Shown here is a 77-nucleotide RNA from Anolis carolinensis, a member of the family "mir-5470 microRNA precursor family".
RNA sequence: UUCUCUCUUCCCACAGGAUAUGAGUAACUCUUGUUGAAAUUAAGAGGGAGUUAUUCAUAUCUUGUGGUAGGAGAACA
Numbered sequence: 001u002u003c004u005c006u007c008u009u010c011c012c013a014c015a016g017g018a019u020a021u022g023a024g025u026a027a028c029u030c031u032u033g034u035u036g037a038a039a040u041u042a043a044g045a046g047g048g049a050g051u052u053a054u055u056c057a058u059a060u061c062u063u064g065u066g067g068u069a070g071g072a073g074a075a076c077a
Stems, first nucleotide, its partner, number of pairs: 004074006011067019030047003034043003
Record summary:
The family's consensus secondary structure was predicted with RNAalifold.